This 192-nucleotide RNA sequence from Halopseudomonas pachastrellae belongs to the Rfam family "RgsA sRNA". Rfam describes the family as follows. This small RNA (sRNA) was computationally identified in the genome of the opportunistic pathogen Pseudomonas aeruginosa and its expression verified by northern blot analysis. P16 sRNA appears to be conserved across several Pseudomonas species and Azotobacter vinelandii. In these species it is consistently located downstream of a predicted TatD deoxyribonuclease gene. P16 has a predicted Rho independent terminator at the 3' end but the function of P16 is unknown. By type it is a small RNA. Its family is annotated with response to hydrogen peroxide, response to oxidative stress and sRNA-mediated gene silencing in the Gene Ontology.
[Rfam]
RNA sequence: AAGCUGAGGCGAGCGUAUUCCAAAUCAGUUUAUAAAAGCGGCAAAGCGCAGUGGAAAGCCAGACAAUUUCGACAAUACUGAAGCUAUCAGGAACGACAUACCCCCCAAGUGUCGUUCCUGAGCGGGCGGGCUCUGUCCUGCCUCUGUAUCACUCCUAAUGGUCUUGGCCCGAAUUCAUCCCCCAGAAUUCGG
Numbered sequence: 001a002a003g004c005u006g007a008g009g010c011g012a013g014c015g016u017a018u019u020c021c022a023a024a025u026c027a028g029u030u031u032a033u034a035a036a037a038g039c040g041g042c043a044a045a046g047c048g049c050a051g052u053g054g055a056a057a058g059c060c061a062g063a064c065a066a067u068u069u070c071g072a073c074a075a076u077a078c079u080g081a082a083g084c085u086a087u088c089a090g091g092a093a094c095g096a097c098a099u100a101c102c103c104c105c106c107a108a109g110u111g112u113c114g115u116u117c118c119u120g121a122g123c124g125g126g127c128g129g130g131c132u133c134u135g136u137c138c139u140g141c142c143u144c145u146g147u148a149u150c151a152c153u154c155c156u157a158a159u160g161g162u163c164u165u166g167g168c169c170c171g172a173a174u175u176c177a178u179c180c181c182c183c184a185g186a187a188u189u190c191g192g
Stems, first nucleotide, its partner, number of pairs: 040162001042160002087121004092116002095113001097111003122145001124143006130136001169192004174187003